[Rfam]
RNA sequence: GGUAGUAGCAAAUACUCAAAUGAGAACUUUGAGGACUGAAGUGGGGAAAGGUUCCAUGUGAACAGCAGUUGGACAUGGGUUAGUCGAUCCUAAGGCAUAGGGAAGUUCCGUUUGAAAGGCGCCCUCGUGCGCCGUGUGCCGAAAGGGAAGCCGGUUAACAUUCCGGCACCUGGAUGUGGAUUCUCCACGGUAACGUAACUGAACGCGGAGACGUCGGCGGGGGUCCUGGGAAGAGUUCUCUUUUCUUCUUGACAGCCUACCACCCUGAAAUCGGUUUGUCCGGAGCUAGGGUUCAAUGGCUGGCAGAGCCCCGCACCUUUGCGGGGUCCGGUGCGCCCCCGACGACCCUUGAAAAUCCGCGGGAAGGAAUAGUUUUCACGCCAGGUCGUACUCAUAACCGCAGCAGGUCUCCAAGGUGAACAGCCUCUAGUUGA
Numbered sequence: 001g002g003u004a005g006u007a008g009c010a011a012a013u014a015c016u017c018a019a020a021u022g023a024g025a026a027c028u029u030u031g032a033g034g035a036c037u038g039a040a041g042u043g044g045g046g047a048a049a050g051g052u053u054c055c056a057u058g059u060g061a062a063c064a065g066c067a068g069u070u071g072g073a074c075a076u077g078g079g080u081u082a083g084u085c086g087a088u089c090c091u092a093a094g095g096c097a098u099a100g101g102g103a104a105g106u107u108c109c110g111u112u113u114g115a116a117a118g119g120c121g122c123c124c125u126c127g128u129g130c131g132c133c134g135u136g137u138g139c140c141g142a143a144a145g146g147g148a149a150g151c152c153g154g155u156u157a158a159c160a161u162u163c164c165g166g167c168a169c170c171u172g173g174a175u176g177u178g179g180a181u182u183c184u185c186c187a188c189g190g191u192a193a194c195g196u197a198a199c200u201g202a203a204c205g206c207g208g209a210g211a212c213g214u215c216g217g218c219g220g221g222g223g224u225c226c227u228g229g230g231a232a233g234a235g236u237u238c239u240c241u242u243u244u245c246u247u248c249u250u251g252a253c254a255g256c257c258u259a260c261c262a263c264c265c266u267g268a269a270a271u272c273g274g275u276u277u278g279u280c281c282g283g284a285g286c287u288a289g290g291g292u293u294c295a296a297u298g299g300c301u302g303g304c305a306g307a308g309c310c311c312c313g314c315a316c317c318u319u320u321g322c323g324g325g326g327u328c329c330g331g332u333g334c335g336c337c338c339c340c341g342a343c344g345a346c347c348c349u350u351g352a353a354a355a356u357c358c359g360c361g362g363g364a365a366g367g368a369a370u371a372g373u374u375u376u377c378a379c380g381c382c383a384g385g386u387c388g389u390a391c392u393c394a395u396a397a398c399c400g401c402a403g404c405a406g407g408u409c410u411c412c413a414a415g416g417u418g419a420a421c422a423g424c425c426u427c428u429a430g431u432u433g434a
Base pairs, nucleotide, nucleotide: 015033016032017031018030019029020028034432035431036430037429043412044411045410046409049392050391054078055077056076057075058074059073063071064070085388086387087386089146090145094140095139097111098110100109101108102107119132120131121130150167151166152165153164154163170384171383172382173381175380176379177378178377179376180374187196188195189194204361205360206359207358208357209356213346214345215344216343218341219340220339221338222337223336224335226331227330228329229249230248231247232246233245234244253302254301255300256299257298262292263291264290265289266288267287271283272282273281274280309326310325311324312323313322314321315320398407399406414426415425416424417423

Eukaryotic large subunit ribosomal RNA: a 434-nucleotide part of an RNA from Aspergillus bombycis. Rfam 15.1 lists 107,465 matches to the family in 2,616 species.